Description:
A member of the RNA family "tRNA" from Saccharolobus islandicus, 74 nucleotides long. It is one of the family's seed sequences. About the family: Transfer RNA (tRNA) molecules are approximately 80 nucleotides in length. Taxonomically the source falls in Saccharolobus islandicus (Archaea, Thermoprotei, Sulfolobales, Sulfolobaceae). It is annotated as a transfer RNA. Rfam links the family to the GO term triplet codon-amino acid adaptor activity.
RNA sequence: GGGCCCGUAGCUUAGCUCGGUAGAGCGCUCGGCUCAUAACCGAGUGGUCAGGGGUUCAAAUCCCCUCGGGCCCA
Numbered sequence: 001g002g003g004c005c006c007g008u009a010g011c012u013u014a015g016c017u018c019g020g021u022a023g024a025g026c027g028c029u030c031g032g033c034u035c036a037u038a039a040c041c042g043a044g045u046g047g048u049c050a051g052g053g054g055u056u057c058a059a060a061u062c063c064c065c066u067c068g069g070g071c072c073c074a
Stems, first nucleotide, its partner, number of pairs: 001073007010026004028044005050066005